[Rfam]
RNA sequence: UUAUCCUCUGGAGUUCCCUCAGACACUUCAUUAGGCCAUUCUCUUCAAUGAAGGCGAGCAUAAACCCUAUUGAAGUGUUUGGGGGAACUCUAGGUGUUAC
Numbered sequence: 001u002u003a004u005c006c007u008c009u010g011g012a013g014u015u016c017c018c019u020c021a022g023a024c025a026c027u028u029c030a031u032u033a034g035g036c037c038a039u040u041c042u043c044u045u046c047a048a049u050g051a052a053g054g055c056g057a058g059c060a061u062a063a064a065c066c067c068u069a070u071u072g073a074a075g076u077g078u079u080u081g082g083g084g085g086a087a088c089u090c091u092a093g094g095u096g097u098u099a100c
Stems, first nucleotide, its partner, number of pairs: 005096001007094003011090020032069004
The family of this 100-nucleotide RNA from Cocos nucifera is "mir-395 microRNA precursor family".
mir-395 was identified in both Arabidopsis thaliana and Oryza sativa computationally and was later experimentally verified. mir-395 is thought to target mRNAs coding for ATP sulphurylases. The mature sequence is excised from the 3' arm of the hairpin.